[Rfam]
Source information:
The record is a 306-nucleotide sequence from Zapornia atra, which matches "Small Cajal body-specific RNA 7" in Rfam. The source organism's lineage runs through Eukaryota, Metazoa, Tetrapoda, Coelurosauria and Zapornia.
RNA sequence: UGGAAGUGAUGAAAUAGAGAUAAUUGGAUGUCAUUUUGAAUGGAGUGUGUGUGAGAAAUGGACUGGGGGUGGGGUGUGGGGGAAUGUGUGUGUGUGUGUGUGAAUGUAUAGAAAAGGCUUUAAAUGGGGGCACUGAUCAUGCAGUGCUGAUUCCGGAGUGCAUCUGAGGCAUGUUGUUAGCUUCUGGGGUACCACUUUACAACAUCGCCGAUGAUUAAAGCCCAGACCAAGCCCACCACGACAAGCCUAAGCAUCCUAAAUCUCUAACAGGUUCAUUUAUCAAAGUGAUCCUGUGAUCUGAUCUGA
Numbered sequence: 001u002g003g004a005a006g007u008g009a010u011g012a013a014a015u016a017g018a019g020a021u022a023a024u025u026g027g028a029u030g031u032c033a034u035u036u037u038g039a040a041u042g043g044a045g046u047g048u049g050u051g052u053g054a055g056a057a058a059u060g061g062a063c064u065g066g067g068g069g070u071g072g073g074g075u076g077u078g079g080g081g082g083a084a085u086g087u088g089u090g091u092g093u094g095u096g097u098g099u100g101u102g103a104a105u106g107u108a109u110a111g112a113a114a115a116g117g118c119u120u121u122a123a124a125u126g127g128g129g130g131c132a133c134u135g136a137u138c139a140u141g142c143a144g145u146g147c148u149g150a151u152u153c154c155g156g157a158g159u160g161c162a163u164c165u166g167a168g169g170c171a172u173g174u175u176g177u178u179a180g181c182u183u184c185u186g187g188g189g190u191a192c193c194a195c196u197u198u199a200c201a202a203c204a205u206c207g208c209c210g211a212u213g214a215u216u217a218a219a220g221c222c223c224a225g226a227c228c229a230a231g232c233c234c235a236c237c238a239c240g241a242c243a244a245g246c247c248u249a250a251g252c253a254u255c256c257u258a259a260a261u262c263u264c265u266a267a268c269a270g271g272u273u274c275a276u277u278u279a280u281c282a283a284a285g286u287g288a289u290c291c292u293g294u295g296a297u298c299u300g301a302u303c304u305g306a
Stems, first nucleotide, its partner, number of pairs: 001305004172204006179197001180193001182191001184189001
The match comes from Rfam's covariance-model search (166 bits).